This 205-nucleotide sequence belongs to the Rfam family "RT-16 RNA".

RNA sequence: CCAGUGAUCAUGAAUCAUAAAUUCACAUAUUUAUGUUAACUGGACUACACGCUCUUUUGCUACGGCAAUUAAACUCUAAGUUUUAUUGUUAUAAAAUUCAACAACGACAUAUUUACAUUUGGAAAUAUCCUAGAAAUCUUUGAUUUCUUCGUACCUAAUGUUGUGAAGUUGUGGUGGUCUAUUAAAAGUAAAAGAGCUAUUGCAG
Numbered sequence: 001c002c003a004g005u006g007a008u009c010a011u012g013a014a015u016c017a018u019a020a021a022u023u024c025a026c027a028u029a030u031u032u033a034u035g036u037u038a039a040c041u042g043g044a045c046u047a048c049a050c051g052c053u054c055u056u057u058u059g060c061u062a063c064g065g066c067a068a069u070u071a072a073a074c075u076c077u078a079a080g081u082u083u084u085a086u087u088g089u090u091a092u093a094a095a096a097u098u099c100a101a102c103a104a105c106g107a108c109a110u111a112u113u114u115a116c117a118u119u120u121g122g123a124a125a126u127a128u129c130c131u132a133g134a135a136a137u138c139u140u141u142g143a144u145u146u147c148u149u150c151g152u153a154c155c156u157a158a159u160g161u162u163g164u165g166a167a168g169u170u171g172u173g174g175u176g177g178u179c180u181a182u183u184a185a186a187a188g189u190a191a192a193a194g195a196g197c198u199a200u201u202g203c204a205g
Stems, first nucleotide, its partner, number of pairs: 001043005007037001009035006051197010068182002072178001074176001101172005108165004